[Rfam]
RNA: Burkholderia RNA 7 (anti-hemB)
RNA sequence: UCCCCCGCUUUUCCUCCCUGAGCGGGAGCCUUUUUAGGCUUGUUACCCCGGCUUAGGCCGGGGUUUUUUUAU
Numbered sequence: 001u002c003c004c005c006c007g008c009u010u011u012u013c014c015u016c017c018c019u020g021a022g023c024g025g026g027a028g029c030c031u032u033u034u035u036a037g038g039c040u041u042g043u044u045a046c047c048c049c050g051g052c053u054u055a056g057g058c059c060g061g062g063g064u065u066u067u068u069u070u071a072u
Stems, first nucleotide, its partner, number of pairs: 004026006028039003045064008